[Rfam]
RNA: Acido-Lenti-1 RNA
Nucleotides: 045
Stems, first nucleotide, its partner, number of pairs: 001019008032044005
Number, partner (000 for none) and nucleotide at each position: 001019c002018c003017c004016a005015u006014g007013g008012c009000u010000g011000c012008g013007c014006c015005a016004u017003g018002g019001g020000c021000u022000a023000c024000g025000a026000a027000u028000g029000g030000c031000c032044g033043c034042c035041c036040c037000u038000c039000c040036g041035g042034g043033g044032c045000u